[Rfam]
RNA: FMN riboswitch aptamer (RFN element)
RNA sequence: UUAUAUCUUCAGGGCGAGGUGUGAUUCCUCACCGGCGGUAUAGCCCGCGAGCCUAUUAUUAGGUUGACUUGGUUAGAUUCCAAGGCCGACAGUAUAGUCUGGAUGAGAGAAGAUGUAA
Numbered sequence: 001u002u003a004u005a006u007c008u009u010c011a012g013g014g015c016g017a018g019g020u021g022u023g024a025u026u027c028c029u030c031a032c033c034g035g036c037g038g039u040a041u042a043g044c045c046c047g048c049g050a051g052c053c054u055a056u057u058a059u060u061a062g063g064u065u066g067a068c069u070u071g072g073u074u075a076g077a078u079u080c081c082a083a084g085g086c087c088g089a090c091a092g093u094a095u096a097g098u099c100u101g102g103a104u105g106a107g108a109g110a111a112g113a114u115g116u117a118a
Stems, first nucleotide, its partner, number of pairs: 003116008017029003031098002033088002035048004043086002051064003068084005090101003